The record is a 172-nucleotide RNA from Paraburkholderia phytofirmans, which matches "Glycine riboswitch aptamer" in Rfam. Lineage of the source: Bacteria > Pseudomonadota > Burkholderiales > Burkholderiaceae > Paraburkholderia phytofirmans. A search with the family's covariance model found it, with a score of 38 bits.
[Rfam]
RNA sequence: UUUUCGCACUCUGGAGAGCGGCAGUAGCCGUCUGCGUCGUGUAUGCGCCGUAUACAUCGAGCAGAUUCUGGCAAGCUGCCCACCGAAGGGGCGCGCGCUUAACCGUAGCGAUGGUGGCUUCAACAUCGUACGGCAGCGCAAUCUCUCAGGUAUCGAGGACAGAGGGGUCAUG
Numbered sequence: 001u002u003u004u005c006g007c008a009c010u011c012u013g014g015a016g017a018g019c020g021g022c023a024g025u026a027g028c029c030g031u032c033u034g035c036g037u038c039g040u041g042u043a044u045g046c047g048c049c050g051u052a053u054a055c056a057u058c059g060a061g062c063a064g065a066u067u068c069u070g071g072c073a074a075g076c077u078g079c080c081c082a083c084c085g086a087a088g089g090g091g092c093g094c095g096c097g098c099u100u101a102a103c104c105g106u107a108g109c110g111a112u113g114g115u116g117g118c119u120u121c122a123a124c125a126u127c128g129u130a131c132g133g134c135a136g137c138g139c140a141a142u143c144u145c146u147c148a149g150g151u152a153u154c155g156a157g158g159a160c161a162g163a164g165g166g167g168u169c170a171u172g
Base pairs, nucleotide, nucleotide: 007166009164010163011162012161013160020080021079022078023077024076025075082151083150084149085147086146089145090144091143